[Rfam]
RNA sequence: AACGAUAAUAGCAAACUUGUCGAAAGGCAAGGACGCAAAGCCAUAGGGCCUAAUACCUGCGAAGCGCAGCGUUUGGCAGCCUGGUUACCGAAU
Number, nucleotide and partner (000 for none) at each position: 001a093002a000003c090004g089005a000006u000007a000008a000009u000010a000011g036012c035013a000014a000015a000016c031017u030018u029019g028020u027021c026022g000023a000024a000025a000026g021027g020028c019029a018030a017031g016032g000033a000034c079035g012036c011037a000038a000039a086040g085041c084042c083043a000044u000045a082046g081047g080048g077049c076050c075051u000052a000053a000054u000055a000056c000057c000058u000059g000060c000061g000062a000063a000064g000065c000066g000067c000068a000069g000070c000071g000072u000073u000074u000075g050076g049077c048078a000079g034080c047081c046082u045083g042084g041085u040086u039087a000088c000089c004090g003091a000092a000093u001

This 93-nucleotide sequence from Paenibacillus cellulosilyticus belongs to the Rfam family "c-di-GMP-I-GGC riboswitch aptamer". A reference for the family is Weinberg et al. (2017), "Bioinformatic analysis of riboswitch structures uncovers variant classes with altered ligand specificity", Proc Natl Acad Sci U S A. Its Rfam clan is "c-di-GMP_I riboswitch clan". Rfam 15.1 lists 1,298 matches to the family in 717 species.